[Rfam]
RNA: Selenocysteine transfer RNA
RNA sequence: GGAAGAGAAGCGUCCCCGGUGGGGCGUCCGGACUUCAAAUCCGGGAGGGGCCGCGAGCCGGUCUCUGGUGGGUUCGACUCCCAUUCUCUUCC
Numbered sequence: 001g002g003a004a005g006a007g008a009a010g011c012g013u014c015c016c017c018g019g020u021g022g023g024g025c026g027u028c029c030g031g032a033c034u035u036c037a038a039a040u041c042c043g044g045g046a047g048g049g050g051c052c053g054c055g056a057g058c059c060g061g062u063c064u065c066u067g068g069u070g071g072g073u074u075c076g077a078c079u080c081c082c083a084u085u086c087u088c089u090u091c092c
Stems, first nucleotide, its partner, number of pairs: 001092009011026006027045006047065005069083004